[Rfam]
RNA: mir-8834 microRNA precursor family
Organism: Canis lupus
RNA sequence: AGGAGGAACAACCACGGUGGCAGCGGCAGCUUGGAAACCUGGAUUCAGCCCCCACAGGAACUCUGAAGCACUCCGCCUGCAGGGCCUGGCGGCUCCGGGGCGGG
Dot-bracket structure: .((((...((.((.....(((.(.(...(((((((..((((.............))))...)))).))).).).))).....))..))....))))........